[Rfam]
RNA sequence: AGCACUAUUUUUAAACCCAUUGGUGGGAUUUCCUGACCACUGUGGGUUACGCUGUAGUGCAAAAGAAUCUCCUGGCUCUUUAGAGCAUUGCUGACCUCACUCCAUUCAGCAGAUGCUCCUCUGAAGCUGAGGAACACAA
Number, nucleotide and partner (000 for none) at each position: 001a000002g060003c059004a058005c057006u056007a055008u054009u000010u000011u000012u000013a000014a048015a047016c046017c045018c000019a000020u000021u042022g041023g040024u039025g038026g037027g000028a000029u000030u000031u000032c000033c000034u000035g000036a000037c026038c025039a024040c023041u022042g021043u000044g000045g017046g016047u015048u014049a000050c000051g000052c000053u000054g008055u007056a006057g005058u004059g003060c002061a000062a000063a000064a000065g000066a000067a000068u134069c000070u133071c132072c131073u130074g128075g127076c126077u125078c000079u123080u000081u000082a120083g000084a000085g116086c115087a114088u112089u111090g110091c109092u000093g107094a106095c000096c000097u000098c000099a000100c000101u000102c000103c000104a000105u000106u094107c093108a000109g091110c090111a089112g088113a000114u087115g086116c085117u000118c000119c000120u082121c000122u000123g079124a000125a077126g076127c075128u074129g000130a073131g072132g071133a070134a068135c000136a000137c000138a000139a000